RNA: Small nucleolar RNA SNORD24
Organism: Acer saccharum
RNA sequence: GGCCAAAGAUGUUAGAAAAUAUUUGCUACUCUUGAUCAUGGAAAUAUUUCCAUAUGAUGAUCUCUGAGGCC
Numbered sequence: 001g002g003c004c005a006a007a008g009a010u011g012u013u014a015g016a017a018a019a020u021a022u023u024u025g026c027u028a029c030u031c032u033u034g035a036u037c038a039u040g041g042a043a044a045u046a047u048u049u050c051c052a053u054a055u056g057a058u059g060a061u062c063u064c065u066g067a068g069g070c071c
Stems, first nucleotide, its partner, number of pairs: 001071004